[Rfam]
Nucleotides: 125
Stems, first nucleotide, its partner, number of pairs: 001057003005053003009049001014045002017042003021038001023037003067122001069121001071119005086110002089107002092103004
Number, partner (000 for none) and nucleotide at each position: 001057u002056c003055c004000a005053g006052c007051a008000u009049u010000u011000g012000a013000a014045a015044g016000g017042g018041a019040u020000a021038g022000u023037g024036g025035g026000c027000u028000g029000c030000c031000a032000g033000c034000a035025c036024c037023c038021u039000g040019g041018u042017c043000a044015u045014u046000g047000a048000g049009a050000c051007u052006g053005c054000a055003g056002g057001g058000g059000g060000a061000g062000g063000a064000a065000c066000u067122g068000c069121u070000g071119a072118a073117a074116g075115c076000g077000g078000u079000u080000c081000c082000c083000c084000a085000u086110g087109u088000u089107g090106g091000a092103a093102g094101g095100g096000c097000u098000c099000a100095c101094c102093c103092u104000g105000u106090c107089c108000c109087a110086u111000g112000g113000u114000u115075g116074c117073u118072u119071u120000g121069a122067c123000c124000a125000a
The family of this 125-nucleotide RNA from Suricata suricatta is "Small nucleolar RNA SNORA71". Its family is annotated with RNA processing and nucleolus in the Gene Ontology. On this family, see Ganot et al., Genes Dev 1997: "The family of box ACA small nucleolar RNAs is defined by an evolutionarily conserved secondary structure and ubiquitous sequence elements essential for RNA accumulation".